[Rfam]
RNA: RAGATH-18 RNA
RNA sequence: CUUGUGGACUGUUAUAGUAAAUGGAAGUAGAUUUUAUAUUAUUUUGAGAUAUAAUAUAAAAACAAAACCAGACAGGGUGAAGCAAGAA
Numbered sequence: 001c002u003u004g005u006g007g008a009c010u011g012u013u014a015u016a017g018u019a020a021a022u023g024g025a026a027g028u029a030g031a032u033u034u035u036a037u038a039u040u041a042u043u044u045u046g047a048g049a050u051a052u053a054a055u056a057u058a059a060a061a062a063c064a065a066a067a068c069c070a071g072a073c074a075g076g077g078u079g080a081a082g083c084a085a086g087a088a
Stems, first nucleotide, its partner, number of pairs: 001086005009075005022070003030063001032061001034059009